RNA sequence: UUAGCUAUUUUAGAUAGGUUUGUAUUCAUACUUCAUGGGUACAGACGGCAAACUCGUUUUUGUAUCUAUGAUGGCUAGAGCAAUUUGUUUUGAACAAACAGCCGCGUAGACGAUAUUUCUAAGUGGCUAUGACUAUAAGAGGCAUUUAAUCUGUUCUUAUCAUCCAUUUAGGCAUAUUGUCUAAAUGGAUUUUUUGUUUCAUUGA
Numbered sequence: 001u002u003a004g005c006u007a008u009u010u011u012a013g014a015u016a017g018g019u020u021u022g023u024a025u026u027c028a029u030a031c032u033u034c035a036u037g038g039g040u041a042c043a044g045a046c047g048g049c050a051a052a053c054u055c056g057u058u059u060u061u062g063u064a065u066c067u068a069u070g071a072u073g074g075c076u077a078g079a080g081c082a083a084u085u086u087g088u089u090u091u092g093a094a095c096a097a098a099c100a101g102c103c104g105c106g107u108a109g110a111c112g113a114u115a116u117u118u119c120u121a122a123g124u125g126g127c128u129a130u131g132a133c134u135a136u137a138a139g140a141g142g143c144a145u146u147u148a149a150u151c152u153g154u155u156c157u158u159a160u161c162a163u164c165c166a167u168u169u170a171g172g173c174a175u176a177u178u179g180u181c182u183a184a185a186u187g188g189a190u191u192u193u194u195u196g197u198u199u200c201a202u203u204g205a
Base pairs, nucleotide, nucleotide: 001078002077003076004075005074006073007072011068012067013066014065015064016063018046019045020044021043022042023041024040025039026038027037028036029035049062050061051060052059082152083150084149085148086144087143088142089141090140091139100128101127102126103125104124105123107121108120109119153181155179158176159175